Rfam assigns this 241-nucleotide sequence from Ktedonobacter racemifer to the family "HNH endonuclease-associated RNA and ORF (HEARO) RNA". The literature on the family includes a 2009 paper in Nature by Weinberg et al., "Exceptional structured noncoding RNAs revealed by bacterial metagenome analysis". The organism belongs to Ktedonobacter racemifer, within Bacteria.
[Rfam]
Nucleotides: 241
Base pairs, nucleotide, nucleotide: 001063003061004060005059006058007057010030011029012027015025016024031042033040034039066227067226068225071106072105073104074103075102076101077100109221110220111219112217113216114215115214116213117212118211119210124158125157128152129151130150131149132148133147134146135145136237138235140233141232142231143230160203161202162201163200164199165198167197168196172195174192175191176190177189178188180186
Number, partner (000 for none) and nucleotide at each position: 001063g002000u003061c004060a005059a006058c007057g008000a009000c010030c011029c012027c013000a014000c015025g016024c017000g018000u019000a020000g021000a022000a023000c024016g025015c026000g027012g028000g029011g030010g031042c032000u033040u034039g035000c036000u037000c038000c039034c040033g041000u042031g043000g044000u045000u046000g047000a048000c049000g050000u051000u052000g053000g054000u055000c056000c057007c058006g059005u060004u061003g062000u063001c064000c065000a066227g067226c068225c069000u070000g071106a072105g073104a074103u075102g076101c077100u078000g079000a080000u081000c082000c083000c084000g085000c086000a087000g088000g089000c090000c091000g092000g093000g094000a095000g096000a097000a098000g099000a100077a101076g102075c103074a104073u105072c106071u107000a108000c109221g110220u111219u112217c113216g114215g115214a116213a117212g118211a119210u120000c121000a122000u123000g124158g125157c126000a127000c128152u129151c130150a131149g132148g133147g134146a135145u136237g137000c138235c139000a140233c141232c142231u143230c144000a145135g146134u147133c148132c149131c150130u151129g152128g153000c154000u155000c156000u157125g158124c159000c160203g161202u162201u163200g164199g165198u166000g167197g168196u169000u170000a171000a172195a173000a174192g175191c176190c177189c178188g179000u180186c181000g182000g183000g184000g185000u186180g187000u188178c189177g190176g191175g192174c193000g194000g195172u196168g197167c198165g199164c200163c201162a202161a203160c204000a205000g206000a207000c208000a209000a210119g211118u212117c213116u214115u215114c216113u217112g218000c219111a220110a221109c222000u223000g224000u225068g226067g227066c228000g229000a230143g231142a232141g233140g234000g235138g236000u237136c238000a239000u240000c241000u